[Rfam]
RNA sequence: UAAUAGAGAGAUAAAAACACGAUUCGGUUGGUAGUCCGAAUGCAGUAUAUAAACUGUCAGUAACCUUCCCUCCUGGGGUUGUCCGUUCUCUUGAGAUUAAAU
Numbered sequence: 001u002a003a004u005a006g007a008g009a010g011a012u013a014a015a016a017a018c019a020c021g022a023u024u025c026g027g028u029u030g031g032u033a034g035u036c037c038g039a040a041u042g043c044a045g046u047a048u049a050u051a052a053a054c055u056g057u058c059a060g061u062a063a064c065c066u067u068c069c070c071u072c073c074u075g076g077g078g079u080u081g082u083c084c085g086u087u088c089u090c091u092u093g094a095g096a097u098u099a100a101a102u
Stems, first nucleotide, its partner, number of pairs: 004094001006092006022041006042057005068078003